[Rfam]
RNA sequence: CUCUGUUUCCGAAUGGGAUUCAGGGCGGAAGGAG
Numbered sequence: 001c002u003c004u005g006u007u008u009c010c011g012a013a014u015g016g017g018a019u020u021c022a023g024g025g026c027g028g029a030a031g032g033a034g
Base pairs, nucleotide, nucleotide: 001025002024003023004022005021008018009017010016
Rfam assigns this 34-nucleotide sequence from Bacillus sonorensis to the family "L31-Firmicutes ribosomal protein leader". A reference for the family is Eckert and Weinberg (2020), "Discovery of 20 novel ribosomal leader candidates in bacteria and archaea", BMC Microbiol. Pairs were carried over by alignment from the consensus structure, which is taken from published work. The family is grouped with related families in Rfam's "Ribosomal Protein L31 Leader clan".